The record is a 46-nucleotide RNA sequence from Trichinella sp. T9, which matches "Histone 3' UTR stem-loop" in Rfam. By type it is a cis-regulatory element.
[Rfam]
RNA sequence: CCAACGGUCCUUUUUAGGACCACAUUUAUUUUUAUUCAAAUCAAUG
Numbered sequence: 001c002c003a004a005c006g007g008u009c010c011u012u013u014u015u016a017g018g019a020c021c022a023c024a025u026u027u028a029u030u031u032u033u034a035u036u037c038a039a040a041u042c043a044a045u046g
Base pairs, nucleotide, nucleotide: 006021007020008019009018010017011016